This 64-nucleotide RNA from Bucorvus abyssinicus belongs to the Rfam family "Selenocysteine insertion sequence 1". Its family is annotated with selenocysteine incorporation in the Gene Ontology. Rfam's curators write: The incorporation of selenocysteine into a protein sequence is directed by an in-frame UGA codon (usually a stop codon) within the coding region of the mRNA. Selenoprotein mRNAs contain a conserved secondary structure in the 3' UTR that is required for the distinction of UGA stop from UGA selenocysteine. The selenocysteine insertion sequence (SECIS) is around 60 nt in length and adopts a hairpin structure which is sufficiently well-defined and conserved to act as a computational screen for selenoprotein genes. Lineage of the source: Eukaryota > Eumetazoa > Aves > Bucerotiformes > Bucorvus.
RNA sequence: CAGCCCCCAUGACGGGCUGUCUUCAAACCAGCUCCUGGUGAGGCAGCCCUGAUGACCCGGCGUG
Numbered sequence: 001c002a003g004c005c006c007c008c009a010u011g012a013c014g015g016g017c018u019g020u021c022u023u024c025a026a027a028c029c030a031g032c033u034c035c036u037g038g039u040g041a042g043g044c045a046g047c048c049c050u051g052a053u054g055a056c057c058c059g060g061c062g063u064g
Stems, first nucleotide, its partner, number of pairs: 001064002005060001014049010029037003